[Rfam]
RNA sequence: CUUUGUGGUCUUCCACAGCUUUCUUGAACUGCAUCUUUGAGAGAGAUUAGCAUCCCUAUGUGUGGAUUUUGCUUGCACGAGUGUGCAGUUCAAUAAAGCUGUGGGAAAUUACAGAGA
Dot-bracket structure: ..(((((.....(((.((((((.((((.(((((..................................................))))).)))).)))))).))).....)))))...
Shown here is a 117-nucleotide RNA sequence from Oryza sativa, a member of the family "MIR396 microRNA precursor family".
Lineage of the source: Eukaryota > Magnoliopsida > Oryzoideae > Oryza > Oryza sativa.
For this family Rfam cites "Expression of Arabidopsis MIRNA genes" (Xie et al., Plant Physiol, 2005).
The family's consensus secondary structure was predicted with WAR.